Shown here is an 86-nucleotide sequence from Petrimonas mucosa, a member of the family "Group II catalytic intron D1-D4-1".
Rfam 15.1 lists 2,508 matches to the family in 1,144 species.
It scores 57 bits against the family's covariance model.
RNA sequence: CACGAACAACAGCGAUGUUGUUUUCACCUUUCAAGAAGUCAGCAGAAGACAUAGUAUUCGGUGUGUGUACACCAUCGAAGAAGGUC
Numbered sequence: 001c002a003c004g005a006a007c008a009a010c011a012g013c014g015a016u017g018u019u020g021u022u023u024u025c026a027c028c029u030u031u032c033a034a035g036a037a038g039u040c041a042g043c044a045g046a047a048g049a050c051a052u053a054g055u056a057u058u059c060g061g062u063g064u065g066u067g068u069a070c071a072c073c074a075u076c077g078a079a080g081a082a083g084g085u086c
Stems, first nucleotide, its partner, number of pairs: 002024001004023008039046002048086003057079006
About this RNA: Rfam's curators write: Group II introns are found in rRNA, tRNA and mRNA of organelles in fungi, plants and protists, and also in mRNA in bacteria.